[Rfam]
The record is a 100-nucleotide RNA from Haladaptatus paucihalophilus, which matches "L4-Archaeoglobi ribosomal protein leades" in Rfam. It is one of the family's seed sequences. The family's RNA type in Rfam is cis-regulatory leader. The organism belongs to Haladaptatus paucihalophilus, within Archaea. For this family Rfam cites "Discovery of 20 novel ribosomal leader candidates in bacteria and archaea" (Eckert and Weinberg, BMC Microbiol, 2020).
Nucleotides: 100
Stems, first nucleotide, its partner, number of pairs: 001100004008091006015041004023035005043085004052079004
Number, partner (000 for none) and nucleotide at each position: 001100c002099u003098g004097a005000a006000g007000g008091g009090c010089g011088c012087g013086u014000u015041c016040g017039g018038g019000u020000c021000a022000a023035u024034u025033g026032c027031g028000g029000a030000c031027u032026g033025c034024a035023a036000c037000a038018c039017c040016c041015g042000a043085u044084c045083u046082c047000a048000c049000u050000c051000g052079u053078c054077g055076u056000u057000c058000c059000g060000u061000c062000g063000c064000a065000a066000a067000u068000g069000a070000c071000g072000g073000u074000c075000g076055g077054c078053g079052a080000g081000g082046g083045a084044g085043a086013a087012c088011g089010c090009g091008u092000u093000a094000c095000c096000g097004u098003c099002a100001g